Shown here is a 160-nucleotide RNA from Bradyrhizobium sediminis, a member of the family "Bradyrhizobiaceae sRNA BjrC80". The literature on the family includes a 2012 paper in RNA Biol by Madhugiri et al., "Small RNAs of the Bradyrhizobium/Rhodopseudomonas lineage and their analysis".
RNA sequence: AGAUGGAGGGUGUCGCCGGCAUAGUCGCCCCCGCCGACGGCUCUUUCCGGGGGGCGGGCCACAAAGCCCGCUCCCUUCGAGUACCUUCCGGUGGAAUACGCCCCCCUCCGUCGGAAGGGCCUAAGGGCGGUGAAGUCCCCCAGCUUCACCGCCCGCUUUU
Numbered sequence: 001a002g003a004u005g006g007a008g009g010g011u012g013u014c015g016c017c018g019g020c021a022u023a024g025u026c027g028c029c030c031c032c033g034c035c036g037a038c039g040g041c042u043c044u045u046u047c048c049g050g051g052g053g054g055c056g057g058g059c060c061a062c063a064a065a066g067c068c069c070g071c072u073c074c075c076u077u078c079g080a081g082u083a084c085c086u087u088c089c090g091g092u093g094g095a096a097u098a099c100g101c102c103c104c105c106c107u108c109c110g111u112c113g114g115a116a117g118g119g120c121c122u123a124a125g126g127g128c129g130g131u132g133a134a135g136u137c138c139c140c141c142a143g144c145u146u147c148a149c150c151g152c153c154c155g156c157u158u159u160u
Stems, first nucleotide, its partner, number of pairs: 009044002012041004017036004050075009060066001076124002080122002084118002088114004093109003125154012